Shown here is a 367-nucleotide RNA from Drosophila melanogaster, a member of the family "Drosophila melanogaster stable intronic sequence RNA 1".
RNA sequence: ACUUCUUUUUAUUUAUUUUUGUUUUUAAAACUACGAUUAAGAAUCGGUUGUAAGCGUGGUGUCUCGUGAUCAGCUCAUUAAGCCCACUUAGAUAUGCUACGCUGUAUUUGGGACUAACCUCGGGUGUUGGUUUGGGUAUGGCAAACGCUGCAAAAACUAGAUUCAGUCAAGGACAUUUACUUUGGCUACGUUGGUCCAACCGAAUACGGGCUUCUGAUUCCAUGAAGAGCUUUUGCAAUUUAGAGUUUGAAAUGAAAUUGUGUUUCCGGAUUAUACUCCAAACAUAUUAUUAUAUGCAAUCUCAUUUACUUUGAAACAUGAUCAAUGAAUAAAAAGAAACUGUUCACAUAAAGCAAGCGACUUAACC
Number, nucleotide and partner (000 for none) at each position: 001a000002c000003u338004u337005c336006u335007u334008u333009u332010u331011a330012u329013u328014u327015a326016u325017u324018u000019u036020u035021g034022u033023u000024u000025u000026u000027a000028a000029a000030a000031c000032u000033a022034c021035g020036a019037u000038u000039a000040a000041g220042a219043a000044u217045c216046g215047g214048u000049u000050g211051u210052a000053a103054g102055c101056g100057u099058g098059g097060u096061g095062u094063c000064u092065c091066g000067u000068g000069a000070u000071c000072a000073g083074c082075u081076c000077a000078u000079u000080a000081a075082g074083c073084c000085c000086a000087c000088u000089u000090a000091g065092a064093u000094a062095u061096g060097c059098u058099a057100c056101g055102c054103u053104g207105u206106a205107u204108u203109u202110g201111g200112g196113a195114c194115u193116a192117a191118c190119c000120u000121c000122g164123g163124g162125u161126g000127u160128u159129g158130g157131u156132u155133u154134g000135g000136g151137u150138a000139u000140g149141g148142c147143a000144a000145a000146c000147g142148c141149u140150g137151c136152a000153a000154a133155a132156a131157c130158u129159a128160g127161a125162u124163u123164c122165a187166g186167u185168c184169a183170a182171g181172g180173a000174c000175a000176u000177u000178u000179a000180c172181u171182u170183u169184g168185g167186c166187u165188a000189c000190g118191u117192u116193g115194g114195u113196c112197c000198a000199a000200c111201c110202g109203a108204a107205u106206a105207c104208g000209g000210g051211c050212u000213u000214c047215u046216g045217a044218u000219u042220c041221c254222a253223u000224g000225a000226a000227g248228a247229g246230c245231u244232u243233u242234u000235g000236c000237a000238a000239u000240u000241u000242a233243g232244a231245g230246u229247u228248u227249g000250a000251a000252a000253u222254g221255a000256a000257a322258u321259u320260g319261u318262g317263u316264u315265u314266c313267c000268g279269g278270a277271u000272u000273a000274u000275a000276c000277u270278c269279c268280a000281a000282a000283c296284a295285u294286a293287u000288u000289a000290u000291u000292a000293u286294a285295u284296g283297c000298a000299a000300u000301c000302u000303c000304a000305u000306u000307u000308a000309c000310u000311u000312u000313g266314a265315a264316a263317c262318a261319u260320g259321a258322u257323c000324a017325a016326u015327g014328a013329a012330u011331a010332a009333a008334a007335a006336g005337a004338a003339a000340c000341u000342g000343u000344u000345c000346a000347c000348a000349u000350a000351a000352a000353g000354c000355a000356a000357g000358c000359g000360a000361c000362u000363u000364a000365a000366c000367c000
The base pairs follow the family's consensus structure, which was predicted with RNAfold. The sequence is in the family's curated seed alignment. The source organism's lineage runs through Eukaryota, Mandibulata, Pancrustacea, Pterygota and Sophophora. It is annotated as a non-coding RNA gene.